[Rfam]
RNA sequence: AUGGAUAUGAUGAUUAUUUUCCCCAGCUGAUCGAAGUUGAUUAUACUGUGGCUACUAUAAAUUUUCUUCUUUUAAGAGGAAAUCAAGCCAAGAUCUGAUCCAU
Numbered sequence: 001a002u003g004g005a006u007a008u009g010a011u012g013a014u015u016a017u018u019u020u021c022c023c024c025a026g027c028u029g030a031u032c033g034a035a036g037u038u039g040a041u042u043a044u045a046c047u048g049u050g051g052c053u054a055c056u057a058u059a060a061a062u063u064u065u066c067u068u069c070u071u072u073u074a075a076g077a078g079g080a081a082a083u084c085a086a087g088c089c090a091a092g093a094u095c096u097g098a099u100c101c102a103u
Stems, first nucleotide, its partner, number of pairs: 001103005

The record is a 103-nucleotide RNA sequence from Phtheirospermum japonicum, which matches "Small nucleolar RNA Z103" in Rfam. Rfam 15.1 lists 2,844 matches to the family in 233 species. It scores 77 bits against the family's covariance model. The base pairs follow the family's consensus structure, which was predicted with PFOLD. Gene Ontology terms of the family: nucleolus and RNA processing.